[Rfam]
RNA sequence: UGAAAGAUGCAGAAGCAGAAAAACUGUUCCGGAUCCGAGAGGCGGAAGAAACAAAAAACAGCCUGAUGCAGGUAGCCAGUGAGCAUAUUGCGCCACUUCAGGAUGCUGUAGAUCUGGAAAUCGCAACGGAGGAAGAAACCUCAUUGCUGGAAGCCUGGAAAAAGUAUCGGGUGUUGCUGAACCGUGUUGAUAC
Numbered sequence: 001u002g003a004a005a006g007a008u009g010c011a012g013a014a015g016c017a018g019a020a021a022a023a024c025u026g027u028u029c030c031g032g033a034u035c036c037g038a039g040a041g042g043c044g045g046a047a048g049a050a051a052c053a054a055a056a057a058a059c060a061g062c063c064u065g066a067u068g069c070a071g072g073u074a075g076c077c078a079g080u081g082a083g084c085a086u087a088u089u090g091c092g093c094c095a096c097u098u099c100a101g102g103a104u105g106c107u108g109u110a111g112a113u114c115u116g117g118a119a120a121u122c123g124c125a126a127c128g129g130a131g132g133a134a135g136a137a138a139c140c141u142c143a144u145u146g147c148u149g150g151a152a153g154c155c156u157g158g159a160a161a162a163a164g165u166a167u168c169g170g171g172u173g174u175u176g177c178u179g180a181a182c183c184g185u186g187u188u189g190a191u192a193c
Stems, first nucleotide, its partner, number of pairs: 008037001011034001015029001017027001063129003068124002073095001075093002079091004097118003101115004
A member of the RNA family "IS009" from Escherichia coli, 193 nucleotides long. The organism belongs to Escherichia coli, within Bacteria. By type it is a non-coding RNA gene. The family's consensus secondary structure was predicted with CMfinder.